[Rfam]
RNA sequence: GAUGAGUUUUAAGCGCCUGGACUGGUAUAGGCCAGUUGACGAGGGCUGGGAUUUUCGAGGAUUCGGCGGGUGUCCCAGGGGUUGAGGAGAUCAGCCCAGAAAGCCGUUUUACAAAACCACGGAGUGAUCUGUGGGACAAAAAAAGCGGCAAUCUCCUUU
Dot-bracket structure: ...................(((((((....)))))))........(((((....((((....)))).......)))))((((((.......)))))).....(((((((.......(((((((....)))))))........)))))))..........
Rfam assigns this 159-nucleotide RNA from Thermovirga lienii to the family "glmS glucosamine-6-phosphate activated ribozyme aptamer". From the family's description: This entry contains a glucosamine-6-phosphate activated ribozyme that is found in the mRNA for GlmS. GlmS is an enzyme that uses fructose-6-phosphate and glutamine to generate glucosamine-6-phosphate. The organism belongs to Thermovirga lienii, within Bacteria.